RNA sequence: GCGUCACUCCCUUUACGACGGAUCGUCCGGCACGUGCCUGCCGGUGAAGGAGCAAUUU
Numbered sequence: 001g002c003g004u005c006a007c008u009c010c011c012u013u014u015a016c017g018a019c020g021g022a023u024c025g026u027c028c029g030g031c032a033c034g035u036g037c038c039u040g041c042c043g044g045u046g047a048a049g050g051a052g053c054a055a056u057u058u
Stems, first nucleotide, its partner, number of pairs: 009050002012048004027044006
A member of the RNA family "msiK RNA" from Nocardioides bruguierae, 58 nucleotides long. It is annotated as a cis-regulatory element. A search with the family's covariance model found it, with a score of 57 bits. The family's consensus secondary structure is taken from published work. NCBI's taxonomy places the organism under Bacteria, Bacillati, Actinomycetes, Propionibacteriales, Nocardioides.